MarS sRNA: a 143-nucleotide RNA from Streptococcus pluranimalium.

[Rfam]
RNA sequence: AUGCGAUGAGUCGAUUGUGGUUUUAAACCACUAUUGCGCUGGGAGGUCAUUAAGGCAGGAAGCCGACCUUGGUAAGUUGUGUGAACCUUCUUACCUCACUUGAAAAAGUGCCCUGAUCCUCUGUCUUUUGACAGGGGAUUUUU
Numbered sequence: 001a002u003g004c005g006a007u008g009a010g011u012c013g014a015u016u017g018u019g020g021u022u023u024u025a026a027a028c029c030a031c032u033a034u035u036g037c038g039c040u041g042g043g044a045g046g047u048c049a050u051u052a053a054g055g056c057a058g059g060a061a062g063c064c065g066a067c068c069u070u071g072g073u074a075a076g077u078u079g080u081g082u083g084a085a086c087c088u089u090c091u092u093a094c095c096u097c098a099c100u101u102g103a104a105a106a107a108g109u110g111c112c113c114u115g116a117u118c119c120u121c122u123g124u125c126u127u128u129u130g131a132c133a134g135g136g137g138a139u140u141u142u143u
Base pairs, nucleotide, nucleotide: 012036013035014034015033017031018030019029020028021027022026041113042112043111044069045068046067047066054064055063056062071095072094073093074092075091076090097110098109099108100107117138118137119136120135121134122133123132124131125130
Dot-bracket structure: ...........((((.((((((...)))))).))))....(((((((......(((.....))).)))).((((((.............)))))).((((......)))))))...(((((((((....))))))))).....
Record summary
The source organism's lineage runs through Bacteria, Bacillati, Bacillota, Bacilli and Streptococcus. The literature on the family includes a 2017 paper in Sci Rep by Pappesch et al., "The Regulatory Small RNA MarS Supports Virulence of Streptococcus pyogenes". The match comes from Rfam's covariance-model search (129 bits).